[Rfam]
RNA sequence: UCUGCAUUCAUGAAAGCAGGAGCAAAAACUAUGACCUAGGGGCUUCUGUUUGAAACAUAGCAAA
Numbered sequence: 001u002c003u004g005c006a007u008u009c010a011u012g013a014a015a016g017c018a019g020g021a022g023c024a025a026a027a028a029c030u031a032u033g034a035c036c037u038a039g040g041g042g043c044u045u046c047u048g049u050u051u052g053a054a055a056c057a058u059a060g061c062a063a064a
Stems, first nucleotide, its partner, number of pairs: 001064001003062003015050009029039003